[Rfam]
RNA sequence: AUCUUAUCAAGAAAGGUGGAGGGUUCUGGCCCGAUGAAGCCUUGGCAACCGGAUUUUCACGGUGCCAAAUCCAGCAGUUAACACUGACAGAUAAGGC
Number, nucleotide and partner (000 for none) at each position: 001a000002u096003c095004u094005u093006a092007u091008c090009a000010a000011g000012a000013a043014a042015g041016g040017u039018g000019g000020a000021g032022g031023g030024u000025u000026c074027u073028g072029g071030c023031c022032c021033g000034a000035u000036g000037a000038a000039g017040c016041c015042u014043u013044g066045g065046c064047a063048a000049c062050c061051g058052g057053a000054u000055u000056u000057u052058c051059a000060c000061g050062g049063u047064g046065c045066c044067a000068a000069a000070u089071c029072c028073a027074g026075c086076a085077g084078u083079u000080a000081a000082c000083a078084c077085u076086g075087a000088c000089a070090g008091a007092u006093a005094a004095g003096g002097c000
RNA: SAM riboswitch aptamer (S box leader)
Organism: Listeria welshimeri